[Rfam]
RNA sequence: UAUUAACCGAUGACGAGGAAUAGUAUCUUUUUAUAGUUUUAAGAGAGUUAGCGUUAGGUGUGAGCUAAUAACUAUAUUUUGAGAAUCCACCUUUGAGGGACUGUGAUAAGCAGUACGGAUUUAUUUCGUUAAAAUAAUUAAGAGGGUUAUUAUAACCAAUUAGGGUGGCAACGCGGAGCUUUUCGUCCCUUGU
Dot-bracket structure: ......((......((((.......((........(((........((((((...........)))))))))........)).......))))...)).(((((.....))))).(((.......)))................(((((...)))))....((((.......(((((....)))))))))...